[Rfam]
Shown here is a 92-nucleotide RNA from Bacillus subtilis, a member of the family "pan motif". Taxonomically the source falls in Bacillus subtilis subsp. subtilis (Bacteria, Bacillati, Bacilli, Bacillus subtilis). The sequence is in the family's curated seed alignment.
RNA sequence: UGGGCAGUAUCGCCUGCGAACUGCACCUAUUAUUAAAAUAGAUAGACAUUGCAGCAGUCUGCCUUGAUCCAAAAAAGGACUGGGACAGAGGG
Numbered sequence: 001u002g003g004g005c006a007g008u009a010u011c012g013c014c015u016g017c018g019a020a021c022u023g024c025a026c027c028u029a030u031u032a033u034u035a036a037a038a039u040a041g042a043u044a045g046a047c048a049u050u051g052c053a054g055c056a057g058u059c060u061g062c063c064u065u066g067a068u069c070c071a072a073a074a075a076a077g078g079a080c081u082g083g084g085a086c087a088g089a090g091g092g
Stems, first nucleotide, its partner, number of pairs: 002027002004024005010019002059088003062084003066080001068079003